[Rfam]
The record is a 69-nucleotide RNA from Bacillus cereus, which matches "RAGATH-18 RNA" in Rfam. The base pairs follow the family's consensus structure, which is taken from published work. Actinobacteria, Firmicutes, Fusobacteria, Thermotogae (1 example).
RNA sequence: CCUGUGGAGUGUCACAGCAAACUGUAGUAGCAAGAGUGAUUAGCGAGGCAGGGCACGUAGAAGCAGGAA
Dot-bracket structure: (((((...(((((........(((.....((..(.....)..))....))))))))......)))))..
Numbered sequence: 001c002c003u004g005u006g007g008a009g010u011g012u013c014a015c016a017g018c019a020a021a022c023u024g025u026a027g028u029a030g031c032a033a034g035a036g037u038g039a040u041u042a043g044c045g046a047g048g049c050a051g052g053g054c055a056c057g058u059a060g061a062a063g064c065a066g067g068a069a
Stems, first nucleotide, its partner, number of pairs: 001067005009056005022051003030044002034040001